[Rfam]
RNA: Small nucleolar RNA Z112
RNA sequence: AUCCCAAUGAAGAUGAAAUGGCCUCUUGAUAGGAAGUGCCGUAUGACACUUGUAAUGCAGUUGCCUGUCCAGUCCUUGGCUCUUUCUCCUCUUGACCAUGCCUCCCUCAAAUCCUACCAUAGGUUUGAGUUUCCGGGGUGUUGUUCAAAGGGGAAUUUGAAGUUCAAUGGACUUGGAGUUCAGCUGUGUGUGUGAUUUUAAAUCGGUCACUGAGGGCU
Number, nucleotide and partner (000 for none) at each position: 001a218002u000003c216004c215005c214006a000007a000008u000009g000010a000011a000012g000013a000014u000015g000016a000017a000018a000019u000020g000021g000022c000023c000024u000025c000026u000027u000028g000029a000030u000031a000032g000033g000034a000035a000036g000037u000038g000039c000040c000041g000042u000043a000044u000045g000046a000047c000048a000049c000050u000051u000052g000053u000054a000055a000056u000057g000058c000059a000060g000061u000062u000063g000064c000065c000066u000067g000068u000069c000070c000071a000072g000073u000074c169075c000076u167077u166078g165079g164080c000081u000082c162083u161084u155085u154086c153087u152088c151089c150090u149091c000092u000093u000094g146095a145096c000097c143098a142099u000100g141101c140102c000103u000104c000105c000106c000107u000108c000109a000110a000111a000112u000113c000114c000115u000116a000117c000118c000119a000120u000121a000122g000123g000124u000125u000126u000127g000128a000129g000130u000131u000132u000133c000134c000135g000136g000137g000138g000139u000140g101141u100142u098143g097144u000145u095146c094147a000148a000149a090150g089151g088152g087153g086154a085155a084156u000157u000158u000159g000160a000161a083162g082163u000164u079165c078166a077167a076168u000169g074170g000171a000172c000173u000174u000175g000176g000177a000178g000179u000180u000181c000182a000183g000184c000185u000186g000187u000188g000189u000190g000191u000192g000193u000194g000195a000196u000197u000198u000199u000200a000201a000202a000203u000204c000205g000206g000207u000208c000209a000210c000211u000212g000213a000214g005215g004216g003217c000218u001